[Rfam]
RNA sequence: GUUGCUUCCUACUGGUGAACUCUCCCUUGUAAUUAGUGGGAGAAAUUCAUGUUUCCGAAGCAUAAAUUAAUUGAUGUAAUUACCAGUAUUAAACAGCACGGUGCUUUGUUUCCAGCACCGUGUUACCUGUCUCCUGGUACAUCC
Numbered sequence: 001g002u003u004g005c006u007u008c009c010u011a012c013u014g015g016u017g018a019a020c021u022c023u024c025c026c027u028u029g030u031a032a033u034u035a036g037u038g039g040g041a042g043a044a045a046u047u048c049a050u051g052u053u054u055c056c057g058a059a060g061c062a063u064a065a066a067u068u069a070a071u072u073g074a075u076g077u078a079a080u081u082a083c084c085a086g087u088a089u090u091a092a093a094c095a096g097c098a099c100g101g102u103g104c105u106u107u108g109u110u111u112c113c114a115g116c117a118c119c120g121u122g123u124u125a126c127c128u129g130u131c132u133c134c135u136g137g138u139a140c141a142u143c144c
Stems, first nucleotide, its partner, number of pairs: 003062006016049004021043005082138005088132001095124003099120005
A member of the RNA family "small nucleolar RNA snoR137" from Populus trichocarpa, 144 nucleotides long. By type it is an H/ACA-box small nucleolar RNA. The organism belongs to Populus, within Eukaryota. The family's consensus secondary structure was predicted with RNAalifold. For this family Rfam cites "Mining small RNA sequencing data: a new approach to identify small nucleolar RNAs in Arabidopsis" (Chen and Wu, Nucleic Acids Res, 2009). Rfam links the family to the GO terms RNA processing and nucleolus. The family has 4 seed sequences and 808 matches in Rfam 15.1.